[Rfam]
RNA sequence: UCUUCAUUUCCCAAACUCUCUCACCGGUCAGAAAGGCGAAAAAGUUUGUAAAAUGACGAGA
Number, nucleotide and partner (000 for none) at each position: 001u059002c058003u000004u056005c055006a054007u053008u000009u000010c000011c000012c048013a047014a046015a045016c044017u043018c000019u041020c000021u039022c038023a000024c000025c000026g000027g000028u000029c000030a000031g000032a000033a000034a000035g000036g000037c000038g022039a021040a000041a019042a000043a017044g016045u015046u014047u013048g012049u000050a000051a000052a000053a007054u006055g005056a004057c000058g002059a001060g000061a000

mir-8364 microRNA precursor family: a 61-nucleotide RNA sequence from Pristionchus pacificus. Lineage of the source: Eukaryota > Opisthokonta > Metazoa > Protostomia > Pristionchus.